The record is a 219-nucleotide sequence from Gossypium arboreum, which matches "Plant small nucleolar RNA U3" in Rfam. Rfam describes the family as follows. Small nucleolar RNAs (snoRNAs) are involved in the processing and modification of rRNA in the nucleolus. There are two main classes of snoRNAs: the box C/D class, and the box H/ACA class.

RNA sequence: ACGACCUUACUUGAACAGGAUCUGUUCUAUAGGCUCGUACCUCUGUAUCCUUAAGUUCAAAGGAGACAGGAUUUCAAGUCUGGUUGACGAGCUAUGACUGUGUGACCUGAGCGUGAUUAUUGGUCUUGUGGUGCCCUCGCCGGUUUCACUUAGACUGCUGAGGAUCGUUCUUAGCUUGCCUUGUGCGGCUGGGAAGGUCGCAUAGUUGUCUGACAGACC
Number, nucleotide and partner (000 for none) at each position: 001a038002c037003g035004a000005c033006c032007u031008u000009a000010c000011u000012u000013g027014a026015a025016c024017a023018g022019g000020a000021u000022c018023u017024g016025u015026u014027c013028u000029a000030u000031a007032g006033g005034c000035u003036c000037g002038u001039a000040c000041c000042u000043c069044u068045g067046u066047a000048u064049c063050c062051u061052u060053a000054a000055g000056u000057u000058c000059a000060a052061a051062g050063g049064a048065g000066a046067c045068a044069g043070g000071a000072u000073u000074u000075c000076a000077a000078g218079u217080c216081u215082g214083g000084u000085u000086g000087a000088c000089g000090a000091g000092c000093u000094a000095u000096g000097a206098c205099u204100g203101u202102g201103u200104g199105a198106c197107c196108u195109g000110a169111g168112c167113g166114u000115g000116a000117u000118u000119a000120u000121u157122g156123g155124u154125c153126u152127u000128g149129u148130g147131g146132u000133g144134c143135c142136c000137u000138c000139g000140c000141c000142g135143g134144u133145u000146u131147c130148a129149c128150u000151u000152a126153g125154a124155c123156u122157g121158c000159u000160g000161a000162g000163g000164a000165u000166c113167g112168u111169u110170c000171u192172u191173a190174g189175c188176u000177u187178g186179c185180c000181u000182u000183g000184u000185g179186c178187g177188g175189c174190u173191g172192g171193g000194a000195a108196g107197g106198u105199c104200g103201c102202a101203u100204a099205g098206u097207u000208g000209u000210c000211u000212g000213a000214c082215a081216g080217a079218c078219c000

Rfam links the family to the GO terms RNA processing and nucleolus.
Its Rfam clan is "U3 clan".
Pairs were carried over by alignment from the consensus structure, which is taken from published work.